Notes:
This 79-nucleotide RNA sequence from Chelonia mydas belongs to the Rfam family "mir-194 microRNA precursor family".

RNA sequence: CAGUAUUAUCAGAUGUAACAGCAACUCCAUGUGGACUACACUGACUUCCAGUGGAGAUGCUGUUACUUUUGAUAUCUAC
Numbered sequence: 001c002a003g004u005a006u007u008a009u010c011a012g013a014u015g016u017a018a019c020a021g022c023a024a025c026u027c028c029a030u031g032u033g034g035a036c037u038a039c040a041c042u043g044a045c046u047u048c049c050a051g052u053g054g055a056g057a058u059g060c061u062g063u064u065a066c067u068u069u070u071g072a073u074a075u076c077u078a079c
Stems, first nucleotide, its partner, number of pairs: 009072003015066008025056006032050003
Source information
The family's consensus secondary structure was predicted with RNAalifold. Lineage of the source: Eukaryota > Vertebrata > Euteleostomi > Sauropsida > Chelonia.